[Rfam]
RNA sequence: GCCAGUGAUGAUAUAAUCCAUGUUGUUUGAGGUGUUGCGGAUCCAAGACCCUGUCUUCACAGGGAGAACCUACUUGGUGAAGCUACAUUCCACCGGAUAUUACUGGAUUACACUGAGGC
Numbered sequence: 001g002c003c004a005g006u007g008a009u010g011a012u013a014u015a016a017u018c019c020a021u022g023u024u025g026u027u028u029g030a031g032g033u034g035u036u037g038c039g040g041a042u043c044c045a046a047g048a049c050c051c052u053g054u055c056u057u058c059a060c061a062g063g064g065a066g067a068a069c070c071u072a073c074u075u076g077g078u079g080a081a082g083c084u085a086c087a088u089u090c091c092a093c094c095g096g097a098u099a100u101u102a103c104u105g106g107a108u109u110a111c112a113c114u115g116a117g118g119c
Base pairs, nucleotide, nucleotide: 001119002118003117049064050063051062052061053060

About this RNA
This 119-nucleotide RNA from Rhododendron simsii belongs to the Rfam family "Small nucleolar RNA Z278". Pairs were carried over by alignment from the consensus structure, which was predicted with PFOLD. Taxonomically the source falls in Rhododendron (Eukaryota, Streptophyta, Streptophytina, Tracheophyta). snoZ278 is a C/D box small nucleolar RNA. Its methylation guide targets have not been reported. It is annotated as a C/D-box small nucleolar RNA.